RNA sequence: CGACGGGGACCUGGUCGGGGCUGACAAAGUGCACGUGGGUGUCGAUGCCGCCGGCGGUCAUGAUUUUGCCUUCACCGGCAAUGACGUCGGUGGCGACGCCGAUGGUGAUGUUCACGCCGUCGGAGAUGUCAGGGUUGCCGGCCUUGCCGAUCUUGAAGAUGUGCCCGUCGCGCAGGGCGACGUCCGCCUUGUAGAUGCCGGUGUAGUCCAGCACGAUGAUGUUCGUGAUGACGGUGUCCGGGAUGUCUUCGUCCCUGGUGCGCUGGCCGUUUUGGCCCAUGCCGUCGCGGAUG
Dot-bracket structure: ((...(.((.((....(((...(......((..((.(.((....)).))).))...((.........)).)...))((..(.(.(....((((((((.(...(((((.........).))))..)..)))...))))).).).)..))....)...))....(.(((..((((.((((......((.(.(.........((......))......).).)).(((..(.((..(.(.........).))).)..).)).)).)).).)))..))))........)).)...))
Overview:
A member of the RNA family "5' ureB small RNA" from Arthrobacter sp. PAMC 25486, 293 nucleotides long. Lineage of the source: Bacteria > Bacillati > Actinomycetes > Micrococcales > Arthrobacter. On this family, see Wen et al., J Bacteriol 2013: "Helicobacter pylori 5'ureB-sRNA, a cis-encoded antisense small RNA, negatively regulates ureAB expression by transcription termination". Rfam links the family to the GO term negative regulation of gene expression. The match comes from Rfam's covariance-model search (90 bits).